RNA sequence: CGAGUCGACCGGGCGGUCGCGUCGGCGGGUGAAAGCCCGCCGCCGAGGAACGUCCGGACUCCACAGGGCAGGGCGGUUGUUAACGGCAACCCGGGGCGACCCGCGGGACAGUGCCACAGAAAACAAACCGCCGGCCGAUCCAGCCGAGCCAACAGGCUCGGCAGGUGACGCCAGGUAAGGGUGAAACGGUGGGGUAAGAGCCCACCAGCACCCCGGGUGACCGGGGUGGCUAGGUAAACCCCGCCCGGAGCAAGGCCAAGACAGGGCCAUCACCGCGAGGUGACGGCCCGCGCAGACGCUUGAGGGCUGCCCGCCCGAUGUCUGCGGGUAGGCCGCUAGAGCCUGCCGGCGACGGUAGGCCGAGAUGGAUGGCCGCCGCUGGUGACACCGGCAACGGUGCCACCGGGCACAGAAUCCGGCGUACAGGUCGACUCGUCCG
Numbered sequence: 001c002g003a004g005u006c007g008a009c010c011g012g013g014c015g016g017u018c019g020c021g022u023c024g025g026c027g028g029g030u031g032a033a034a035g036c037c038c039g040c041c042g043c044c045g046a047g048g049a050a051c052g053u054c055c056g057g058a059c060u061c062c063a064c065a066g067g068g069c070a071g072g073g074c075g076g077u078u079g080u081u082a083a084c085g086g087c088a089a090c091c092c093g094g095g096g097c098g099a100c101c102c103g104c105g106g107g108a109c110a111g112u113g114c115c116a117c118a119g120a121a122a123a124c125a126a127a128c129c130g131c132c133g134g135c136c137g138a139u140c141c142a143g144c145c146g147a148g149c150c151a152a153c154a155g156g157c158u159c160g161g162c163a164g165g166u167g168a169c170g171c172c173a174g175g176u177a178a179g180g181g182u183g184a185a186a187c188g189g190u191g192g193g194g195u196a197a198g199a200g201c202c203c204a205c206c207a208g209c210a211c212c213c214c215g216g217g218u219g220a221c222c223g224g225g226g227u228g229g230c231u232a233g234g235u236a237a238a239c240c241c242c243g244c245c246c247g248g249a250g251c252a253a254g255g256c257c258a259a260g261a262c263a264g265g266g267c268c269a270u271c272a273c274c275g276c277g278a279g280g281u282g283a284c285g286g287c288c289c290g291c292g293c294a295g296a297c298g299c300u301u302g303a304g305g306g307c308u309g310c311c312c313g314c315c316c317g318a319u320g321u322c323u324g325c326g327g328g329u330a331g332g333c334c335g336c337u338a339g340a341g342c343c344u345g346c347c348g349g350c351g352a353c354g355g356u357a358g359g360c361c362g363a364g365a366u367g368g369a370u371g372g373c374c375g376c377c378g379c380u381g382g383u384g385a386c387a388c389c390g391g392c393a394a395c396g397g398u399g400c401c402a403c404c405g406g407g408c409a410c411a412g413a414a415u416c417c418g419g420c421g422u423a424c425a426g427g428u429c430g431a432c433u434c435g436u437c438c439g
Stems, first nucleotide, its partner, number of pairs: 001435010011424001012377007020045002023042006050422003054419005059250004066312004071246005076090005091105001092103004106241002111239002113235003128180002130176003134172001136170002188206006208230001209228008254334004292325006304316004341360008
RNA: Bacterial RNase P class A